This 80-nucleotide sequence from Macleaya cordata belongs to the Rfam family "Small nucleolar RNA Z159/U59".
The family's consensus secondary structure was predicted with PFOLD.
The match comes from Rfam's covariance-model search (52 bits).
Lineage of the source: Eukaryota > Streptophyta > Embryophyta > Mesangiospermae > Macleaya.
For this family Rfam cites "The high diversity of snoRNAs in plants: identification and comparative study of 120 snoRNA genes from Oryza sativa" (Chen et al., Nucleic Acids Res, 2003).
RNA sequence: GUUUCUGAGGAUGAUUAUACAAUUAACUUUCGUUCUUCUGAUGUAAUCCAUGUAGAAACUGAGGCCUGAAUUGAAGAAGC
Numbered sequence: 001g002u003u004u005c006u007g008a009g010g011a012u013g014a015u016u017a018u019a020c021a022a023u024u025a026a027c028u029u030u031c032g033u034u035c036u037u038c039u040g041a042u043g044u045a046a047u048c049c050a051u052g053u054a055g056a057a058a059c060u061g062a063g064g065c066c067u068g069a070a071u072u073g074a075a076g077a078a079g080c
Stems, first nucleotide, its partner, number of pairs: 003078004